[Rfam]
Rfam assigns this 94-nucleotide sequence from Cereibacter sphaeroides to the family "Rhodo-rpoB RNA".
RNA sequence: GGUUCGGGAGCCCUCCGGUGGGACGGGGGGCGUGAAUGGGACCUCACCCCCUUCUUCGCAAGCGGCGCAGGACCGUGGCCCGACGGUCCCUGCG
Numbered sequence: 001g002g003u004u005c006g007g008g009a010g011c012c013c014u015c016c017g018g019u020g021g022g023a024c025g026g027g028g029g030g031c032g033u034g035a036a037u038g039g040g041a042c043c044u045c046a047c048c049c050c051c052u053u054c055u056u057c058g059c060a061a062g063c064g065g066c067g068c069a070g071g072a073c074c075g076u077g078g079c080c081c082g083a084c085g086g087u088c089c090c091u092g093c094g
Stems, first nucleotide, its partner, number of pairs: 001043005010031008066094005071088005